Rfam assigns this 73-nucleotide RNA to the family "skipping-rope RNA".
It is annotated as a small RNA.
Rfam's curators put it in the seed alignment.
Pairs were carried over by alignment from the consensus structure, which is taken from published work.
RNA sequence: AGAAUCAGAGGACGGAACAGGCAGCCGUCGCCCAUUGUUAGGAGAUGCGGGAAUCGUCACCCCGCCUGAUUCU
Numbered sequence: 001a002g003a004a005u006c007a008g009a010g011g012a013c014g015g016a017a018c019a020g021g022c023a024g025c026c027g028u029c030g031c032c033c034a035u036u037g038u039u040a041g042g043a044g045a046u047g048c049g050g051g052a053a054u055c056g057u058c059a060c061c062c063c064g065c066c067u068g069a070u071u072c073u
Stems, first nucleotide, its partner, number of pairs: 001073008011029005020058003031042001047065005